[Rfam]
Rfam assigns this 64-nucleotide sequence from Pipistrellus kuhlii to the family "mir-9242 microRNA precursor family".

RNA sequence: GGCCUCCCUCUGUGGGGCGAUCGAUCACGGGGCCCCCAGAUCAAUUGCCCCACAGAAGGAGGCC
Number, nucleotide and partner (000 for none) at each position: 001g064002g063003c062004c061005u060006c059007c058008c000009u056010c055011u054012g053013u052014g051015g050016g049017g048018c047019g046020a045021u044022c000023g042024a041025u040026c039027a000028c000029g036030g035031g000032g000033c000034c000035c030036c029037c000038a000039g026040a025041u024042c023043a000044a021045u020046u019047g018048c017049c016050c015051c014052a013053c012054a011055g010056a009057a000058g007059g006060a005061g004062g003063c002064c001
The family has 2 seed sequences and 940 matches in Rfam 15.1. It scores 67 bits against the family's covariance model. Taxonomically the source falls in Pipistrellus (Eukaryota, Bilateria, Sarcopterygii, Chiroptera).